The record is a 272-nucleotide RNA sequence from Macaca fascicularis, which matches "Mason-Pfizer monkey virus packaging signal" in Rfam. The literature on the family includes a 2004 paper in Virus Res by Mustafa et al., "Mutational analysis of the predicted secondary RNA structure of the Mason-Pfizer monkey virus packaging signal". Rfam classes the family as a cis-regulatory element. This family represents a group of sequences that are related to the Mason-Pfizer monkey virus (MPMV) packaging signal.
[Rfam]
RNA sequence: UGGCGCCCGAACAGGGACCUGGAAACGAGGGACUCCGUGAGGAAGAGACCAGGGUCGACCGCUAACAAAGACAAAAGGAGUCAAACUUUUCCGAUCACACGGGAACCUGCCGCGUCAGAAUCGAAGGUAAGUGACGCGUCCGAAAUGGGACAAGAAUUAAGCCAACAUCAAAUAUAUGUAGGACAAUUAAAAGAGGCUUUAAAGAUACGAGGAGUAAAGGUUAAAGGUAAUGAUUUGUUUAAAUUUUUGAUUUUGUAAAGACACUUGCCCUU
Numbered sequence: 001u002g003g004c005g006c007c008c009g010a011a012c013a014g015g016g017a018c019c020u021g022g023a024a025a026c027g028a029g030g031g032a033c034u035c036c037g038u039g040a041g042g043a044a045g046a047g048a049c050c051a052g053g054g055u056c057g058a059c060c061g062c063u064a065a066c067a068a069a070g071a072c073a074a075a076a077g078g079a080g081u082c083a084a085a086c087u088u089u090u091c092c093g094a095u096c097a098c099a100c101g102g103g104a105a106c107c108u109g110c111c112g113c114g115u116c117a118g119a120a121u122c123g124a125a126g127g128u129a130a131g132u133g134a135c136g137c138g139u140c141c142g143a144a145a146u147g148g149g150a151c152a153a154g155a156a157u158u159a160a161g162c163c164a165a166c167a168u169c170a171a172a173u174a175u176a177u178g179u180a181g182g183a184c185a186a187u188u189a190a191a192a193g194a195g196g197c198u199u200u201a202a203a204g205a206u207a208c209g210a211g212g213a214g215u216a217a218a219g220g221u222u223a224a225a226g227g228u229a230a231u232g233a234u235u236u237g238u239u240u241a242a243a244u245u246u247u248u249g250a251u252u253u254u255g256u257a258a259a260g261a262c263a264c265u266u267g268c269c270c271u272u
Stems, first nucleotide, its partner, number of pairs: 006031003038046001085128003089124001095120001096118001098114001100112003136151001139149004158201003161197003208249004213245003218236006257272002260269001262267001
Dot-bracket structure: .....(((....................)))......(.......)......................................(((.(.....((.(.(((.......))).)...).)...).))).......(..((((...)))).)......((((((...............................))).)))......((((.(((..((((((.......))))))......))))))).......((.(.(....).).))